Background
Rfam assigns this 312-nucleotide RNA from Halalkalicoccus paucihalophilus to the family "Archaeal signal recognition particle RNA". On this family, see Wild et al., Curr Opin Struct Biol 2002: "Towards the structure of the mammalian signal recognition particle". The organism belongs to Halalkalicoccus, within Archaea. By type it is a non-coding RNA gene. The match comes from Rfam's covariance-model search (193 bits).

[Rfam]
RNA sequence: AACUGGACUAGGUCGGGCAGUUAGGCCCUGCUCGUCACCCGCACUACGGUCUUCAGCGGGGACCGAACCCCGGGCGCGUCCGGUCCGACCGGCGCGGGCCCCGGGAGCCAACUGAGAAACCUCGUCCGUCGGGGACAGCGGUCCGCGGCGAGCGUCCGCAGGGACGUGUCGUCGCGGUUGGUCGAUGGAAAUCCGUCAGGCACGGAAGUGAGCAGCGGGCCAUCGGAUACCUGUCGCUCGACGGAUCGCGGGGUGGAGGAGGCAACCGGGACUCCCCGCGCCGGAACGCCGGGCAACCCCGGGUGUCCACCC
Number, nucleotide and partner (000 for none) at each position: 001a000002a000003c000004u309005g308006g307007a306008c305009u000010a000011g064012g063013u062014c061015g033016g032017g031018c030019a029020g028021u000022u000023a000024g000025g000026c000027c000028c020029u019030g018031c017032u016033c015034g000035u000036c000037a000038c060039c059040c058041g057042c056043a000044c000045u000046a000047c000048g000049g000050u000051c000052u000053u000054c000055a000056g042057c041058g040059g039060g038061g014062a013063c012064c011065g000066a000067a000068c000069c303070c302071c301072g300073g299074g298075c000076g000077c000078g294079u293080c292081c291082g289083g000084u000085c000086c000087g000088a000089c284090c283091g282092g281093c280094g279095c278096g277097g276098g275099c000100c270101c269102c268103g267104g266105g000106a000107g263108c262109c261110a000111a000112c258113u257114g000115a000116g000117a000118a000119a254120c253121c252122u251123c250124g249125u248126c244127c243128g242129u241130c240131g239132g238133g237134g235135a234136c233137a232138g231139c000140g228141g179142u000143c177144c176145g175146c174147g173148g172149c171150g170151a169152g167153c166154g165155u164156c163157c162158g000159c000160a000161g000162g157163g156164a155165c154166g153167u152168g000169u151170c150171g149172u148173c147174g146175c145176g144177g143178u000179u141180g000181g000182u226183c225184g224185a223186u222187g221188g220189a000190a000191a000192u219193c218194c217195g216196u215197c000198a000199g000200g000201c210202a209203c208204g000205g000206a000207a000208g203209u202210g201211a000212g000213c000214a000215g196216c195217g194218g193219g192220c188221c187222a186223u185224c184225g183226g182227a000228u140229a000230c000231c138232u137233g136234u135235c134236g000237c133238u132239c131240g130241a129242c128243g127244g126245a000246u000247c000248g125249c124250g123251g122252g121253g120254u119255g000256g000257a113258g112259g000260a000261g109262g108263c107264a000265a000266c104267c103268g102269g101270g100271a000272c000273u000274c000275c098276c097277c096278g095279c094280g093281c092282c091283g090284g089285a000286a000287c000288g000289c082290c000291g081292g080293g079294c078295a000296a000297c000298c074299c073300c072301g071302g070303g069304u000305g008306u007307c006308c005309a004310c000311c000312c000